[Rfam]
RNA: mir-9195 microRNA precursor family
Organism: Cnephaeus nilssonii
RNA sequence: AGAGGCCCUCCGAGGCCAAGGUGGAACGCUUGCCUCGUCACAACAGCGACAAAGCAAGCAUUCUGCCAGGCCGCUCACACUGCCUGC
Numbered sequence: 001a002g003a004g005g006c007c008c009u010c011c012g013a014g015g016c017c018a019a020g021g022u023g024g025a026a027c028g029c030u031u032g033c034c035u036c037g038u039c040a041c042a043a044c045a046g047c048g049a050c051a052a053a054g055c056a057a058g059c060a061u062u063c064u065g066c067c068a069g070g071c072c073g074c075u076c077a078c079a080c081u082g083c084c085u086g087c
Stems, first nucleotide, its partner, number of pairs: 004084003012074001014072004020067007028059006037050003041046001